[Rfam]
RNA sequence: CCCAGGGCAGUGCCUCCAGGACUGUCCGACCUGAGAAUGGUGUGUCGGGGUCAAUCUCAGGUUCGUCAGCCCACGAGGUGCUGCCCCUUU
Dot-bracket structure: ....((((((((((((..((.(((.(.(((((((((.((............)).))))))))).).))).))..))))))))).)))...
RNA: mir-1388 microRNA precursor family
Organism: Camelus dromedarius